[Rfam]
RNA: Small nucleolar RNA SNORA77
RNA sequence: GCAGACUCACUCUGUUCUUUGCUGUCUUCUCCAGUCUUGAUCUUUUUCUGUCUGCUACAUUAGUGGUCAGGGUGUAUCAACUACUGCCUUUUUAUUUUUUUAUAAAAAGCUGGUGCUGAUAUGUUUUGCAACACAAAA
Dot-bracket structure: ((((((.......(.((....(((.......)))....)).).......))))))............((((((((((((..(((((........................))))).))))))))))))..........